The family of this 124-nucleotide sequence from Heterocephalus glaber is "Small nucleolar RNA SNORA51".
NCBI's taxonomy places the organism under Eukaryota, Euteleostomi, Theria, Glires, Heterocephalus.
Rfam describes the family as follows. ACA51 is a member of the H/ACA class of snoRNA that guide the sites of modification of uridines to pseudouridines.
By type it is an H/ACA-box small nucleolar RNA.
Rfam links the family to the GO terms RNA processing and nucleolus.
Rfam 15.1 lists 2,121 matches to the family in 210 species.
The family's consensus secondary structure was predicted with PFOLD.
[Rfam]
Nucleotides: 124
Base pairs, nucleotide, nucleotide: 002057003056004055005054006053007051019041020040021039024035025034027032071118072117073116074115075114084103085101086100087099088098089096
Number, partner (000 for none) and nucleotide at each position: 001000g002057g003056c004055c005054u006053c007051u008000g009000g010000g011000c012000c013000u014000u015000a016000c017000a018000u019041c020040g021039g022000c023000u024035g025034u026000a027032u028000c029000g030000u031000u032027a033000c034025a035024c036000u037000g038000a039021c040020u041019g042000u043000a044000c045000a046000g047000a048000a049000a050000g051007a052000g053006g054005a055004g056003g057002c058000a059000g060000a061000g062000u063000c064000a065000g066000c067000c068000u069000u070000g071118c072117c073116u074115g075114u076000a077000u078000a079000c080000c081000u082000c083000u084103g085101c086100c087099a088098g089096c090000a091000c092000c093000c094000a095000u096089g097000c098088c099087u100086g101085g102000u103084c104000u105000u106000u107000a108000u109000u110000g111000u112000g113000g114075a115074u116073a117072g118071g119000a120000c121000a122000g123000g124000g